[Rfam]
RNA sequence: GCACCACGUCUUGCCCGUUCCACGCUGUGCAGUGUGGGCCUGGGGACACACGGUGCUUACAGAAAGGCAGAGCAAAUCCAGACAGGUCACUUGUUGUUCAUUAGGUACCCGUCUCUACACCUCUGCAACAGUU
Numbered sequence: 001g002c003a004c005c006a007c008g009u010c011u012u013g014c015c016c017g018u019u020c021c022a023c024g025c026u027g028u029g030c031a032g033u034g035u036g037g038g039c040c041u042g043g044g045g046a047c048a049c050a051c052g053g054u055g056c057u058u059a060c061a062g063a064a065a066g067g068c069a070g071a072g073c074a075a076a077u078c079c080a081g082a083c084a085g086g087u088c089a090c091u092u093g094u095u096g097u098u099c100a101u102u103a104g105g106u107a108c109c110c111g112u113c114u115c116u117a118c119a120c121c122u123c124u125g126c127a128a129c130a131g132u133u
Stems, first nucleotide, its partner, number of pairs: 001056005012046001014044004020038002067126006080114004085109003094104002